The family of this 47-nucleotide RNA from Acer yangbiense is "Plastid-rpl16 group II-D1 intron". A search with the family's covariance model found it, with a score of 60 bits. Rfam links the family to the GO term Group II intron splicing. The base pairs follow the family's consensus structure, which was predicted with LocARNA. Lineage of the source: Eukaryota > Euphyllophyta > Sapindales > Sapindaceae > Acer. Rfam's curators write: Plastid-rpl16 is a non-coding RNA (ncRNA) recognised in plastids. It was recognised in and intronic region of a ribosome rpl16 gene.
[Rfam]
RNA sequence: ACAAGCCUCAAGCCAAUAAAGACUGAGAAAAUUGACUUAAGAAAAAA
Numbered sequence: 001a002c003a004a005g006c007c008u009c010a011a012g013c014c015a016a017u018a019a020a021g022a023c024u025g026a027g028a029a030a031a032u033u034g035a036c037u038u039a040a041g042a043a044a045a046a047a
Stems, first nucleotide, its partner, number of pairs: 007041002010038003014034004